[Rfam]
RNA sequence: UAGACACCCAUGGUGUCUUUCGCUGUGCAGUCAGUAGAUACUUAUUUGCGAAUGUAUAGCAAAAGACAGAAUGGGAGUCCG
Numbered sequence: 001u002a003g004a005c006a007c008c009c010a011u012g013g014u015g016u017c018u019u020u021c022g023c024u025g026u027g028c029a030g031u032c033a034g035u036a037g038a039u040a041c042u043u044a045u046u047u048g049c050g051a052a053u054g055u056a057u058a059g060c061a062a063a064a065g066a067c068a069g070a071a072u073g074g075g076a077g078u079c080c081g
Stems, first nucleotide, its partner, number of pairs: 003079003008074004014068007022060003026056004031051002035048004
This 81-nucleotide sequence from Prolemur simus belongs to the Rfam family "mir-511 microRNA precursor family". The match comes from Rfam's covariance-model search (80 bits). On this family, see Linsen et al., BMC Genomics 2010: "Small RNA expression and strain specificity in the rat". Gene Ontology terms of the family: miRNA-mediated post-transcriptional gene silencing and RISC complex. The family's consensus secondary structure was predicted with RNAalifold. Clan: mir-506 microRNA precursor clan.